[Rfam]
RNA sequence: ACCGCCAGAAUCUUGGCGAUGUACGGGAUCAUUGGCAGGUUGAGGAACAACAAGAUCACAUUGCCCACAUACAUGGAAAUAAUGACAGACCAGAAGAUUUCAGGCUGAUCAAUCAUCAAGCGCGGACC
Numbered sequence: 001a002c003c004g005c006c007a008g009a010a011u012c013u014u015g016g017c018g019a020u021g022u023a024c025g026g027g028a029u030c031a032u033u034g035g036c037a038g039g040u041u042g043a044g045g046a047a048c049a050a051c052a053a054g055a056u057c058a059c060a061u062u063g064c065c066c067a068c069a070u071a072c073a074u075g076g077a078a079a080u081a082a083u084g085a086c087a088g089a090c091c092a093g094a095a096g097a098u099u100u101c102a103g104g105c106u107g108a109u110c111a112a113u114c115a116u117c118a119a120g121c122g123c124g125g126a127c128c
Stems, first nucleotide, its partner, number of pairs: 003018006026128002029125002033122002038114003043109001046106001048104001052100003056097002061093003066088001072084003
A member of the RNA family "Ruegeria cis8 sRNA" from Pseudovibrio axinellae, 128 nucleotides long.
The family has 2 seed sequences and 138 matches in Rfam 15.1.